Shown here is a 71-nucleotide RNA from Aedes aegypti, a member of the family "mir-2943 microRNA precursor family". The sequence is in the family's curated seed alignment. Pairs were carried over by alignment from the consensus structure, which was predicted with RNAalifold. Lineage of the source: Eukaryota > Panarthropoda > Eumetabola > Diptera > Stegomyia. Rfam links the family to the GO terms RISC complex and miRNA-mediated post-transcriptional gene silencing.
[Rfam]
RNA sequence: GAUGUUAAGUAGGCACUUGCAGGCAAAUUUGUAGCUUUAAUAUGAUUGACUGCUUUUUCCUACUUUACAUU
Numbered sequence: 001g002a003u004g005u006u007a008a009g010u011a012g013g014c015a016c017u018u019g020c021a022g023g024c025a026a027a028u029u030u031g032u033a034g035c036u037u038u039a040a041u042a043u044g045a046u047u048g049a050c051u052g053c054u055u056u057u058u059c060c061u062a063c064u065u066u067a068c069a070u071u
Base pairs, nucleotide, nucleotide: 001071002070003069004068005067007065008064009063010062011061012060013059019053020052021051022050024048025047026046